[Rfam]
RNA sequence: GGUUGUGGUAGUUUUUUUCUCACACAUUUGUUAAGUUUUCAAAUGAGCCUGACUCUGCCACAUAUAUUGUAAGGAGCUGGUGAAAGCUUAAAGAUAGAAAGUUGUCUUGAGCUUUUGUGUAUCAGAUAUUAGCUGUCACAGUU
Numbered sequence: 001g002g003u004u005g006u007g008g009u010a011g012u013u014u015u016u017u018u019c020u021c022a023c024a025c026a027u028u029u030g031u032u033a034a035g036u037u038u039u040c041a042a043a044u045g046a047g048c049c050u051g052a053c054u055c056u057g058c059c060a061c062a063u064a065u066a067u068u069g070u071a072a073g074g075a076g077c078u079g080g081u082g083a084a085a086g087c088u089u090a091a092a093g094a095u096a097g098a099a100a101g102u103u104g105u106c107u108u109g110a111g112c113u114u115u116u117g118u119g120u121a122u123c124a125g126a127u128a129u130u131a132g133c134u135g136u137c138a139c140a141g142u143u
Base pairs, nucleotide, nucleotide: 005061006060007059008058009057010056011055023047025045026044027043028042029041030040073136075134076133077132078131079088080087081086103128104127105126106125107124
Overview
The record is a 143-nucleotide sequence from Fukomys damarensis, which matches "Small nucleolar RNA SNORA12" in Rfam. The source organism's lineage runs through Eukaryota, Chordata, Euteleostomi, Mammalia and Fukomys. It scores 102 bits against the family's covariance model. The family's consensus secondary structure was predicted with RNAalifold.